[Rfam]
RNA sequence: UACGAACAUAACAUAAUUUUUCAUAUAACGGCAGGAAUACGGCCUGCAAGUUUCUACCAGUUUACCUCAAAUAAACUGACUAUGAAAAGCGUACGGAAUUAC
Numbered sequence: 001u002a003c004g005a006a007c008a009u010a011a012c013a014u015a016a017u018u019u020u021u022c023a024u025a026u027a028a029c030g031g032c033a034g035g036a037a038u039a040c041g042g043c044c045u046g047c048a049a050g051u052u053u054c055u056a057c058c059a060g061u062u063u064a065c066c067u068c069a070a071a072u073a074a075a076c077u078g079a080c081u082a083u084g085a086a087a088a089g090c091g092u093a094c095g096g097a098a099u100u101a102c
Base pairs, nucleotide, nucleotide: 018088019087020086021085022084023083024082025081031047032046033045034044035043058078059077060076061075062074063073064072
Dot-bracket structure: .................((((((((.....(((((.......)))))..........(((((((.......)))))))..))))))))..............